[Rfam]
RNA sequence: UUUACUUAAUGAAGAUGCUUCCUAAAACCUUUCUGAGGGAAGCUUCUGAUGUAACUGUAAA
Dot-bracket structure: (((((........((.(((((((....(......).))))))).))..........)))))